[Rfam]
RNA: Ribosomal protein L20 leader
RNA sequence: GUGCGAAAGAAGAAGCGCCCGCUUCUCACCUGUCCGACGUAGGUUGGCUGGUUAUGAAUGAGAGUGACCUUACUUGAAUAUCUGAUGUUUUAUCGGAUAGAUCAAUCACUUGAAACAAACCGCGUGGGCGUUUUUAUCGCCCACGUAUUUUUUUUUAA
Numbered sequence: 001g002u003g004c005g006a007a008a009g010a011a012g013a014a015g016c017g018c019c020c021g022c023u024u025c026u027c028a029c030c031u032g033u034c035c036g037a038c039g040u041a042g043g044u045u046g047g048c049u050g051g052u053u054a055u056g057a058a059u060g061a062g063a064g065u066g067a068c069c070u071u072a073c074u075u076g077a078a079u080a081u082c083u084g085a086u087g088u089u090u091u092a093u094c095g096g097a098u099a100g101a102u103c104a105a106u107c108a109c110u111u112g113a114a115a116c117a118a119a120c121c122g123c124g125u126g127g128g129c130g131u132u133u134u135u136a137u138c139g140c141c142c143a144c145g146u147a148u149u150u151u152u153u154u155u156u157a158a
Stems, first nucleotide, its partner, number of pairs: 011026006028052003034047005123145008132136001